[Rfam]
Nucleotides: 074
Base pairs, nucleotide, nucleotide: 004071005070006069007068008067009066010065011064012063015060016059018057020055021054022053023052024051025050027048028047029046030045031044032043
Number, partner (000 for none) and nucleotide at each position: 001000g002000u003000g004071g005070c006069a007068c008067u009066c010065a011064a012063a013000a014000a015060g016059u017000a018057g019000c020055g021054g022053c023052a024051c025050u026000u027048u028047u029046u030045u031044u032043u033000a034000u035000u036000a037000c038000c039000g040000g041000a042000g043032a044031g045030a046029a047028a048027a049000a050025a051024g052023u053022g054021c055020c056000c057018c058000c059016a060015c061000a062000g063012u064011u065010u066009g067008a068007g069006u070005g071004c072000c073000a074000c
This 74-nucleotide sequence from Dipodomys ordii belongs to the Rfam family "mir-290 microRNA precursor family". The family has 31 seed sequences and 565 matches in Rfam 15.1. The organism belongs to Dipodomys, within Eukaryota. On this family, see Houbaviy et al., Dev Cell 2003: "Embryonic stem cell-specific MicroRNAs". The family is grouped with related families in Rfam's "mir-290 clan".